Description:
A member of the RNA family "Actinobacteria sRNA Ms_IGR-7" from Rhodococcus sp. SMB37, 120 nucleotides long. The organism belongs to Rhodococcus, within Bacteria. The pairing is the family consensus, mapped onto this sequence. It is annotated as a small RNA. The literature on the family includes a 2013 paper in RNA by Li et al., "Identification of small RNAs in Mycobacterium smegmatis using heterologous Hfq".
[Rfam]
RNA sequence: UGAAAGUGCCUCGUGGUGUGGUGGAUAGUCAGGACCUAGACACUCCCGAUUAUCCCAGCUCACAAGGCACUUUCGUUAUCUCACACGCCGAUCCACCCUCGAGAUCGUCCACGGAUUCAG
Numbered sequence: 001u002g003a004a005a006g007u008g009c010c011u012c013g014u015g016g017u018g019u020g021g022u023g024g025a026u027a028g029u030c031a032g033g034a035c036c037u038a039g040a041c042a043c044u045c046c047c048g049a050u051u052a053u054c055c056c057a058g059c060u061c062a063c064a065a066g067g068c069a070c071u072u073u074c075g076u077u078a079u080c081u082c083a084c085a086c087g088c089c090g091a092u093c094c095a096c097c098c099u100c101g102a103g104a105u106c107g108u109c110c111a112c113g114g115a116u117u118c119a120g
Stems, first nucleotide, its partner, number of pairs: 002074010013063001016061001019058001022057003026052004033045002101118003105114003